[Rfam]
RNA sequence: GUGCCCUUUUAAGGUUGUCGCAGUACUUUAAGAGGCUAAUCCAGAAGGAUAAAAGAACUCUCCAUGGGCUUUAACCCAUGGAGGGGACUGUACAUCUCCUCCUUGGAUCCUGUCUGGAGUCACAGAU
Numbered sequence: 001g002u003g004c005c006c007u008u009u010u011a012a013g014g015u016u017g018u019c020g021c022a023g024u025a026c027u028u029u030a031a032g033a034g035g036c037u038a039a040u041c042c043a044g045a046a047g048g049a050u051a052a053a054a055g056a057a058c059u060c061u062c063c064a065u066g067g068g069c070u071u072u073a074a075c076c077c078a079u080g081g082a083g084g085g086g087a088c089u090g091u092a093c094a095u096c097u098c099c100u101c102c103u104u105g106g107a108u109c110c111u112g113u114c115u116g117g118a119g120u121c122a123c124a125g126a127u
Base pairs, nucleotide, nucleotide: 002051003050005048006047007046008045009044010043014040015039016038017037019035021032060119061118062117063116064115076106077105078104080102081101082100084098085097086096089094
RNA: Small nucleolar RNA SNORA26
Organism: Cricetulus griseus